[Rfam]
RNA: SAM riboswitch aptamer (S box leader)
Organism: Bacillus taeanensis
RNA sequence: CUCUUAUCCCGAGUUGGUGGAGGGACAGGCCCGAUGAAACCCAGCAACCGUCAUCUAUGAAACGGUGAAAAGGUGCUAACCUGAAAGGCCUUCGUGCCUUUAAGAUAAGAG
Numbered sequence: 001c002u003c004u005u006a007u008c009c010c011g012a013g014u015u016g017g018u019g020g021a022g023g024g025a026c027a028g029g030c031c032c033g034a035u036g037a038a039a040c041c042c043a044g045c046a047a048c049c050g051u052c053a054u055c056u057a058u059g060a061a062a063c064g065g066u067g068a069a070a071a072g073g074u075g076c077u078a079a080c081c082u083g084a085a086a087g088g089c090c091u092u093c094g095u096g097c098c099u100u101u102a103a104g105a106u107a108a109g110a111g
Stems, first nucleotide, its partner, number of pairs: 001111008013042001016041003022032003026083004043077004048073002051068005084101006